[Rfam]
RNA sequence: AGAUCAAUGAUGAAAUCCAUAUAUACAUUCCUUGGAAAUCUGAACAAAAUGAGUGAAAAACCCCUACCGUCUUGCUCAUCGACCUGAGGUCC
Numbered sequence: 001a002g003a004u005c006a007a008u009g010a011u012g013a014a015a016u017c018c019a020u021a022u023a024u025a026c027a028u029u030c031c032u033u034g035g036a037a038a039u040c041u042g043a044a045c046a047a048a049a050u051g052a053g054u055g056a057a058a059a060a061c062c063c064c065u066a067c068c069g070u071c072u073u074g075c076u077c078a079u080c081g082a083c084c085u086g087a088g089g090u091c092c
Stems, first nucleotide, its partner, number of pairs: 002091004026055005032047003
Shown here is a 92-nucleotide RNA from Loxodonta africana, a member of the family "Small nucleolar RNA SNORD116".
For this family Rfam cites "Identification of brain-specific and imprinted small nucleolar RNA genes exhibiting an unusual genomic organization" (Cavaille et al., Proc Natl Acad Sci U S A, 2000).
The family has 48 seed sequences and 3,260 matches in Rfam 15.1.
By type it is a C/D-box small nucleolar RNA.
The sequence is in the family's curated seed alignment.
Its family is annotated with nucleolus and RNA processing in the Gene Ontology.